[Rfam]
A member of the RNA family "Small nucleolar RNA R38" from Aegilops tauschii, 94 nucleotides long. The family has 19 seed sequences and 2,295 matches in Rfam 15.1. The source organism's lineage runs through Eukaryota, Viridiplantae, Streptophyta, Euphyllophyta and Aegilops tauschii. Pairs were carried over by alignment from the consensus structure, which was predicted with PFOLD. A search with the family's covariance model found it, with a score of 54 bits. Rfam's curators write: snoR38 is a C/D box small nucleolar RNA conserved across yeast, human, Arabidopsis and rice. It is encoded in the intron of elongation factor-1 gamma in both pombe and cerevisiae. snoR38 guides the methylation of 2'-O-ribose sites in 28S rRNA. By type it is a C/D-box small nucleolar RNA.

RNA sequence: CUAUGUGGAUGAUGAAAUCACAAGUAAAAAAUGCAGUUAUCCCUGUCUUGCUUCCUCGGAAGGGUGCUGAGAAUACUUUGAAUCUGACACAGAU
Numbered sequence: 001c002u003a004u005g006u007g008g009a010u011g012a013u014g015a016a017a018u019c020a021c022a023a024g025u026a027a028a029a030a031a032u033g034c035a036g037u038u039a040u041c042c043c044u045g046u047c048u049u050g051c052u053u054c055c056u057c058g059g060a061a062g063g064g065u066g067c068u069g070a071g072a073a074u075a076c077u078u079u080g081a082a083u084c085u086g087a088c089a090c091a092g093a094u
Base pairs, nucleotide, nucleotide: 002093004091005090006089007088